[Rfam]
RNA: ZMP/ZTP riboswitch aptamer (pfl RNA motif)
Organism: Bradyrhizobium sp. STM 3843
RNA sequence: CGCUUCUCGCGCGACUGGCGACUUUGGAUGGAGCACCAUCAGGGAGCGCGGGAGUAUCUGCCGUGCGCCUGGGCAUCAGCU
Numbered sequence: 001c002g003c004u005u006c007u008c009g010c011g012c013g014a015c016u017g018g019c020g021a022c023u024u025u026g027g028a029u030g031g032a033g034c035a036c037c038a039u040c041a042g043g044g045a046g047c048g049c050g051g052g053a054g055u056a057u058c059u060g061c062c063g064u065g066c067g068c069c070u071g072g073g074c075a076u077c078a079g080c081u
Stems, first nucleotide, its partner, number of pairs: 004054009015043002017069004028039004059075004